Rfam assigns this 85-nucleotide RNA from Homo sapiens to the family "mir-515 microRNA precursor family". Its Rfam clan is "mir-290 clan". The family has 181 seed sequences and 1,056 matches in Rfam 15.1. The source organism's lineage runs through Eukaryota, Metazoa, Eumetazoa, Hominoidea and Homo. The literature on the family includes a 2005 paper in Nat Genet by Bentwich et al., "Identification of hundreds of conserved and nonconserved human microRNAs".
RNA sequence: CUCAAGCUGUGACUCUCCAGAGGGAUGCACUUUCUCUUAUGUGAAAAAAAAGAAGGCGCUUCCCUUUAGAGCGUUACGGUUUGGG
Numbered sequence: 001c002u003c004a005a006g007c008u009g010u011g012a013c014u015c016u017c018c019a020g021a022g023g024g025a026u027g028c029a030c031u032u033u034c035u036c037u038u039a040u041g042u043g044a045a046a047a048a049a050a051a052g053a054a055g056g057c058g059c060u061u062c063c064c065u066u067u068a069g070a071g072c073g074u075u076a077c078g079g080u081u082u083g084g085g
Stems, first nucleotide, its partner, number of pairs: 001085004006080008015071003019067007027059002030056005037051002
Dot-bracket structure: ((((.((((((((.(((.(((((((.((.(((((..((...........))))))).)).))))))).))).)))))))).))))